[Rfam]
RNA sequence: AACGACCGGCCGGACACGCCCUUGCGAAAGUCAGCGAGUUCCGGCCCACAAGUGGAGGCUCCGAUCUCCCACCUGGCCGCCCGGCACAUAAGGGCGGCGGGUCACCGGUCAGACGGUCCCCAUCGUUCCGUACGGACGAUGGAACCGUCCGAUAGCGCGCCCCGCGGUCACACCGUGGCGGUGCUCCGGUAGUUCUUGGAGCCCCCCAUGUGUACCGUCCGGGGCAUUUUUU
Numbered sequence: 001a002a003c004g005a006c007c008g009g010c011c012g013g014a015c016a017c018g019c020c021c022u023u024g025c026g027a028a029a030g031u032c033a034g035c036g037a038g039u040u041c042c043g044g045c046c047c048a049c050a051a052g053u054g055g056a057g058g059c060u061c062c063g064a065u066c067u068c069c070c071a072c073c074u075g076g077c078c079g080c081c082c083g084g085c086a087c088a089u090a091a092g093g094g095c096g097g098c099g100g101g102u103c104a105c106c107g108g109u110c111a112g113a114c115g116g117u118c119c120c121c122a123u124c125g126u127u128c129c130g131u132a133c134g135g136a137c138g139a140u141g142g143a144a145c146c147g148u149c150c151g152a153u154a155g156c157g158c159g160c161c162c163c164g165c166g167g168u169c170a171c172a173c174c175g176u177g178g179c180g181g182u183g184c185u186c187c188g189g190u191a192g193u194u195c196u197u198g199g200a201g202c203c204c205c206c207c208a209u210g211u212g213u214a215c216c217g218u219c220c221g222g223g224g225c226a227u228u229u230u231u232u
Base pairs, nucleotide, nucleotide: 004110005109006108007107008106009105012042013041043103044102045101046100047099049075050074052072053071054070055069056067057066076098077097078096079095080094081093082092112149113148114147115146116145120142121141122140123139124138125137126136127135159225160224161223162222163221164220165217166216167215172213175211176210178207180205181204183202184201185200186199187198
Dot-bracket structure: ...((((((..((...........................))(((((.((.((((((........)).)))).))(((((((.........)))))))))))).)))))).(((((...((((((((.......))))))))..))))).........(((((((((....(..((.(.((.(((((..........))))).)).)..)).).)))..)))))).......
Shown here is a 232-nucleotide sequence from Streptomyces sp. SID8379, a member of the family "Streptomyces RNA 1601". A reference for the family is Vockenhuber et al. (2011), "Deep sequencing-based identification of small non-coding RNAs in Streptomyces coelicolor", RNA Biol. NCBI's taxonomy places the organism under Bacteria, Actinomycetes, Kitasatosporales, Streptomycetaceae, Streptomyces. Rfam's curators write: Identified by deep sequencing of transcriptome at the end of exponential growth phase. Appears longer on northern blot than sequencing transcript. Streptomyces specific.